The record is a 74-nucleotide RNA from Caenorhabditis bovis, which matches "mir-236 microRNA precursor family" in Rfam. Pairs were carried over by alignment from the consensus structure, which was predicted with RNAalifold.
RNA sequence: GGUUGUCGUCUUACCUGAACAUUAUUUAGAAAUCAUCGCGCAUUUUCUAAUACUGUCAGGUAAUGACGCUAACC
Numbered sequence: 001g002g003u004u005g006u007c008g009u010c011u012u013a014c015c016u017g018a019a020c021a022u023u024a025u026u027u028a029g030a031a032a033u034c035a036u037c038g039c040g041c042a043u044u045u046u047c048u049a050a051u052a053c054u055g056u057c058a059g060g061u062a063a064u065g066a067c068g069c070u071a072a073c074c
Stems, first nucleotide, its partner, number of pairs: 001074005007068004011063007020055002023052004028048003